[Rfam]
A member of the RNA family "U8 small nucleolar RNA" from Carlito syrichta, 127 nucleotides long. It scores 77 bits against the family's covariance model. Pairs were carried over by alignment from the consensus structure, which is taken from published work. Rfam classes the family as a C/D-box small nucleolar RNA.
RNA sequence: CGCUAAGAACAGAUUACCAGUUCCUCCUUCUGGAGGCAGAUUAGAACAUGAUUAUUGGAGUUCACAUGAUAUGUGAUUACCAUCUACAUAAUCAGGACUUGCAGCAUUCUGAUUACUCCUAUCUGAU
Number, nucleotide and partner (000 for none) at each position: 001c000002g000003c000004u000005a000006a000007g000008a000009a000010c000011a000012g000013a000014u000015u000016a000017c000018c039019a000020g037021u000022u000023c036024c035025u034026c033027c032028u000029u000030c000031u000032g027033g026034a025035g024036g023037c020038a000039g018040a000041u000042u000043a000044g000045a000046a000047c000048a000049u000050g000051a000052u000053u000054a000055u000056u000057g000058g000059a000060g000061u000062u000063c000064a000065c000066a000067u000068g000069a085070u000071a083072u082073g081074u079075g000076a000077u000078u000079a074080c000081c073082a072083u071084c000085u069086a000087c000088a000089u115090a114091a113092u112093c111094a110095g109096g108097a000098c000099u000100u000101g000102c000103a000104g000105c000106a000107u000108u096109c095110u094111g093112a092113u091114u090115a089116c000117u000118c000119c000120u000121a000122u000123c000124u000125g000126a000127u000